[Rfam]
RNA sequence: UUCCGACGUCCUUCAUUCCACCGGAGUCUGUCAGGCUUAAACGACAGAUUUCGGGGGAUGAAGUGCAUCGGUCG
Numbered sequence: 001u002u003c004c005g006a007c008g009u010c011c012u013u014c015a016u017u018c019c020a021c022c023g024g025a026g027u028c029u030g031u032c033a034g035g036c037u038u039a040a041a042c043g044a045c046a047g048a049u050u051u052c053g054g055g056g057g058a059u060g061a062a063g064u065g066c067a068u069c070g071g072u073c074g
Stems, first nucleotide, its partner, number of pairs: 011063006019055001021054001023052004028047003
Notes
Rfam assigns this 74-nucleotide RNA from Petromyzon marinus to the family "mir-205 microRNA precursor family". The organism belongs to Petromyzon, within Eukaryota. The family has 44 seed sequences and 1,154 matches in Rfam 15.1. Rfam links the family to the GO terms RISC complex and miRNA-mediated post-transcriptional gene silencing. Pairs were carried over by alignment from the consensus structure, which was predicted with RNAalifold.